[Rfam]
RNA sequence: CCAAGCCCUUGCAAGGUGGCCUCUGCCCGAACCGGCCCUGACGUACUUCCCCAACGCCAGGUCCGCACUCUCGGGCAGGGACCUCCCUGCAAGGGCAGGCACAC
Numbered sequence: 001c002c003a004a005g006c007c008c009u010u011g012c013a014a015g016g017u018g019g020c021c022u023c024u025g026c027c028c029g030a031a032c033c034g035g036c037c038c039u040g041a042c043g044u045a046c047u048u049c050c051c052c053a054a055c056g057c058c059a060g061g062u063c064c065g066c067a068c069u070c071u072c073g074g075g076c077a078g079g080g081a082c083c084u085c086c087c088u089g090c091a092a093g094g095g096c097a098g099g100c101a102c103a104c
Base pairs, nucleotide, nucleotide: 010091011090012089013088015086016085018083019082021080022079023078024077025076026075027074028073029072030071033065034064035063037061038060039059040058042056043055044054
Shown here is a 104-nucleotide RNA sequence from Mycobacterium sp. Root135, a member of the family "mraW RNA". NCBI's taxonomy places the organism under Bacteria, Actinomycetes, Mycobacteriales, Mycobacteriaceae, Mycobacterium. Rfam classes the family as a cis-regulatory element. The match comes from Rfam's covariance-model search (72 bits).